[Rfam]
RNA sequence: AAAAAAGCAGGAUGUUGUUCUCUAUAUAAGCAGUGUCCUCGUAAACUUUAGGAAUAACAUAGUCAUUGUUAUUGGGUGAAUCAGUAGACAGCCUGAUGUUUAUUGGUUCAGUAAAUGAUGACACAGUU
Numbered sequence: 001a002a003a004a005a006a007g008c009a010g011g012a013u014g015u016u017g018u019u020c021u022c023u024a025u026a027u028a029a030g031c032a033g034u035g036u037c038c039u040c041g042u043a044a045a046c047u048u049u050a051g052g053a054a055u056a057a058c059a060u061a062g063u064c065a066u067u068g069u070u071a072u073u074g075g076g077u078g079a080a081u082c083a084g085u086a087g088a089c090a091g092c093c094u095g096a097u098g099u100u101u102a103u104u105g106g107u108u109c110a111g112u113a114a115a116u117g118a119u120g121a122c123a124c125a126g127u128u
Stems, first nucleotide, its partner, number of pairs: 005048003011037002014034004062122009077110007

About this RNA:
The family of this 128-nucleotide sequence from Oryza meyeriana is "Small nucleolar RNA snoR74". The literature on the family includes a 2002 paper in Curr Biol by Marker et al., "Experimental RNomics: identification of 140 candidates for small non-messenger RNAs in the plant Arabidopsis thaliana".